[Rfam]
Nucleotides: 546
Base pairs, nucleotide, nucleotide: 007485008484009483010482012481013480014477015476016475017474020281021280023278027273028272029271030270031269032268033267036167037166038165039164040163041162042161043160044159045158046156047155049153050152051151052150063148065146066145067144070131071130171261172260173259174258175257181254182253183252184251190205191204193202194201222248223247224246225245226244284297285295286294287293298320300318301317302316303315323424324423329381330380331379332378333377334376335361336360338356339355340354341353342352343351362371363370386410388408391405392404393403394402412421413420435463436462437461438460439459440458443457444456445455494535495534496533498532500528501527503525504524509519510518
Number, partner (000 for none) and nucleotide at each position: 001000g002000a003000a004000g005000a006000c007485c008484c009483u010482g011000u012481u013480g014477a015476g016475c017474u018000u019000g020281a021280u022000a023278c024000u025000a026000g027273u028272c029271u030270g031269g032268c033267a034000c035000g036167g037166u038165g039164a040163a041162g042161a043160g044159a045158c046156a047155u048000g049153a050152g051151a052150g053000g054000u055000g056000u057000a058000g059000a060000a061000u062000a063148a064000g065146u066145g067144g068000g069000a070131g071130g072000c073000c074000c075000c076000c077000g078000c079000u080000g081000c082000c083000a084000c085000c086000c087000c088000g089000u090000c091000c092000c093000c094000g095000c096000g097000a098000g099000g100000g101000g102000g103000u104000g105000g106000g107000g108000c109000g110000g111000g112000g113000u114000c115000c116000g117000c118000c119000g120000g121000c122000c123000u124000u125000g126000c127000c128000a129000g130071c131070c132000a133000c134000c135000g136000g137000u138000g139000a140000a141000a142000u143000a144067c145066c146065a147000g148063u149000a150052c151051u152050c153049u154000g155047a156046u157000c158045g159044u160043u161042u162041u163040u164039u165038c166037a167036c168000u169000g170000a171261c172260c173259u174258g175257g176000u177000g178000a179000g180000g181254c182253g183252g184251g185000g186000g187000g188000g189000c190205g191204a192000a193202c194201c195000c196000c197000g198000a199000g200000g201194g202193g203000g204191u205190c206000u207000u208000g209000c210000u211000u212000c213000u214000g215000g216000c217000g218000c219000c220000a221000a222248g223247c224246g225245c226244c227000c228000g229000g230000c231000c232000g233000c234000a235000u236000g237000c238000c239000g240000g241000c242000g243000g244226g245225g246224c247223g248222c249000g250000g251184c252183c253182u254181g255000c256000u257175c258174u259173g260172g261171g262000g263000a264000c265000a266000g267033u268032g269031c270030c271029a272028g273027g274000u275000g276000g277000g278023g279000a280021g281020u282000u283000u284297g285295a286294c287293u288000g289000g290000g291000g292000c293287g294286g295285u296000a297284c298320a299000c300318c301317u302316g303315u304000c305000a306000a307000a308000c309000g310000g311000u312000a313000a314000c315303a316302c317301a318300g319000a320298u321000g322000u323424c324423c325000u326000a327000a328000g329381g330380c331379g332378a333377g334376c335361u336360c337000a338356g339355g340354g341353a342352g343351g344000a345000c346000a347000g348000a349000a350000a351343c352342c353341u354340c355339c356338c357000g358000u359000g360336g361335a362371g363370c364000a365000g366000a367000a368000g369000g370363g371362c372000a373000a374000a375000a376334g377333c378332u379331c380330g381329c382000u383000u384000g385000a386410u387000c388408u389000u390000g391405a392404u393403u394402u395000u396000c397000a398000g399000u400000a401000u402394g403393a404392a405391u406000a407000c408388a409000a410386a411000c412421c413420g414000u415000g416000a417000a418000a419000c420413c421412g422000g423324g424323g425000c426000c427000u428000c429000a430000c431000g432000a433000u434000u435463c436462u437461u438460c439459u440458g441000a442000c443457c444456u445455u446000u447000c448000g449000g450000g451000u452000u453000u454000u455445a456444a457443g458440c459439a460438g461437g462436a463435g464000g465000u466000g467000u468000c469000a470000g471000a472000a473000c474017a475016g476015u477014u478000a479000c480013c481012a482010c483009a484008g485007g486000g487000a488000u489000a490000a491000c492000u493000g494535g495534u496533u497000u498532g499000u500528g501527g502000c503525g504524g505000c506000c507000a508000a509519g510518u511000g512000u513000u514000c515000a516000u517000a518510g519509u520000g521000a522000c523000a524504u525503c526000a527501c528500u529000u530000u531000u532498u533496g534495a535494u536000c537000c538000u539000u540000c541000g542000a543000u544000g545000u546000g
Shown here is a 546-nucleotide part of an RNA from Cercocebus atys, a member of the family "Eukaryotic large subunit ribosomal RNA". The family's consensus secondary structure is taken from published work. Rfam 15.1 lists 107,465 matches to the family in 2,616 species.